[Rfam]
RNA: Fungal signal recognition particle RNA
Organism: Spathaspora sp. JA1
RNA sequence: UGGCUGUGAUGGCCAUUAGUAGAAGCGCACUGAUUGAUUUUGUACUUGUCUUGUCAAUUCACUCGGGAGUGUCCGGUUCGAUUCCUGCGGUACGAAUUUCUGGGAACUUGAGUAAUCAGUUAUUCCAAAUUCAGGUAAUGAGUAACAAUAUCACUGGAGGGAAGUAAUUCAGCACAGUAUGUUACCCGUGGUGAAGGCGAAACGGAUGGCACAAACGAUUUAGUGAUGAUUUGGGAGUAUCUAGUGUGACGACUCGAUUUU
Numbered sequence: 001u002g003g004c005u006g007u008g009a010u011g012g013c014c015a016u017u018a019g020u021a022g023a024a025g026c027g028c029a030c031u032g033a034u035u036g037a038u039u040u041u042g043u044a045c046u047u048g049u050c051u052u053g054u055c056a057a058u059u060c061a062c063u064c065g066g067g068a069g070u071g072u073c074c075g076g077u078u079c080g081a082u083u084c085c086u087g088c089g090g091u092a093c094g095a096a097u098u099u100c101u102g103g104g105a106a107c108u109u110g111a112g113u114a115a116u117c118a119g120u121u122a123u124u125c126c127a128a129a130u131u132c133a134g135g136u137a138a139u140g141a142g143u144a145a146c147a148a149u150a151u152c153a154c155u156g157g158a159g160g161g162a163a164g165u166a167a168u169u170c171a172g173c174a175c176a177g178u179a180u181g182u183u184a185c186c187c188g189u190g191g192u193g194a195a196g197g198c199g200a201a202a203c204g205g206a207u208g209g210c211a212c213a214a215a216c217g218a219u220u221u222a223g224u225g226a227u228g229a230u231u232u233g234g235g236a237g238u239a240u241c242u243a244g245u246g247u248g249a250c251g252a253c254u255c256g257a258u259u260u261u
Base pairs, nucleotide, nucleotide: 001015002014003013004012018259019258020257022255023254026248027247028246029245030244031243032241033240034239045235046234047233048232051229052228053227054226055225056224058222061221063218064217065216069212070211071210072209073205074204075203077201078200079199080198082195083194084193085191086190087189088188089187090186094132095131096130097129098128099127102124103123105121106120107119108118110117111116135139142185143184144183145182146181147180153178154177155176156175161170162169163168